Rfam assigns this 104-nucleotide RNA from Pseudidiomarina piscicola to the family "Vibrio RNA AS9". NCBI's taxonomy places the organism under Bacteria, Pseudomonadati, Alteromonadales, Idiomarinaceae, Pseudidiomarina. From the family's description: Identified by direct cloning an parallel sequencing experiments with 5S/tRNA depletion. Confirmed by Northern blot. On this family, see Liu et al., Nucleic Acids Res 2009: "Experimental discovery of sRNAs in Vibrio cholerae by direct cloning, 5S/tRNA depletion and parallel sequencing".

RNA sequence: CUGCUCACAACGAUCUUCCGUCAAGGUUAAACAAAUUAACCCACGGCCAAAGCGCGCCAUGAAAUUAAUCGCUUCAGGUGUUACACAUUCUGCUGCAAUGAUUA
Numbered sequence: 001c002u003g004c005u006c007a008c009a010a011c012g013a014u015c016u017u018c019c020g021u022c023a024a025g026g027u028u029a030a031a032c033a034a035a036u037u038a039a040c041c042c043a044c045g046g047c048c049a050a051a052g053c054g055c056g057c058c059a060u061g062a063a064a065u066u067a068a069u070c071g072c073u074u075c076a077g078g079u080g081u082u083a084c085a086c087a088u089u090c091u092g093c094u095g096c097a098a099u100g101a102u103u104a
Base pairs, nucleotide, nucleotide: 003058005056008054009028010027011026014023036050037049040046041045066104067103068102069101070100071096072095075092076091077090078088079087080086